Shown here is a 71-nucleotide RNA from Cynoglossus semilaevis, a member of the family "Small nucleolar RNA SNORD75". Rfam links the family to the GO terms RNA processing and nucleolus. A search with the family's covariance model found it, with a score of 58 bits. The literature on the family includes a 1998 paper in Mol Cell Biol by Smith and Steitz, "Classification of gas5 as a multi-small-nucleolar-RNA (snoRNA) host gene and a member of the 5'-terminal oligopyrimidine gene family reveals common features of snoRNA host genes".

RNA sequence: AGUCACUGAUGAUUUAAGAUGUAUAAGAGUAGUGGACAGAAGAGAUUUCUGAGCAACACGAAACUGAGACU
Numbered sequence: 001a002g003u004c005a006c007u008g009a010u011g012a013u014u015u016a017a018g019a020u021g022u023a024u025a026a027g028a029g030u031a032g033u034g035g036a037c038a039g040a041a042g043a044g045a046u047u048u049c050u051g052a053g054c055a056a057c058a059c060g061a062a063a064c065u066g067a068g069a070c071u
Stems, first nucleotide, its partner, number of pairs: 001071004
Dot-bracket structure: ((((...............................................................))))